[Rfam]
Bacteroidetes FopS (family of paralogous sRNAs): a 64-nucleotide sequence from Segatella oulorum. Rfam 15.1 lists 822 matches to the family in 178 species. The family's consensus secondary structure is taken from published work. The literature on the family includes a 2025 paper in Nat Commun by Ruttiger et al., "The global RNA-binding protein RbpB is a regulator of polysaccharide utilization in Bacteroides thetaiotaomicron". Rfam describes the family as follows. The RNA-binding protein RbpB and BTncRNA_FopS sRNA are involved in the post-transcription regulation of polysaccharide utilisation loci (PUL).
RNA sequence: GUGUUUUUCAUAGUAUUAGAUUUAAGGUUAAUAAGAGGGGCUCGGCGGAGUCCUUUUUUUUAUG
Dot-bracket structure: ....................................(((((((....)))))))..........